[Rfam]
RNA sequence: GAACCGGGCACGGCCACGGCCGGUCAGACCCGGGGUGCCCCACCGAAAGGUGAGGCGGCA
Numbered sequence: 001g002a003a004c005c006g007g008g009c010a011c012g013g014c015c016a017c018g019g020c021c022g023g024u025c026a027g028a029c030c031c032g033g034g035g036u037g038c039c040c041c042a043c044c045g046a047a048a049g050g051u052g053a054g055g056c057g058g059c060a
Base pairs, nucleotide, nucleotide: 004033005032006031007030008029011022012021013020014019037056038055039054041052042051043050044049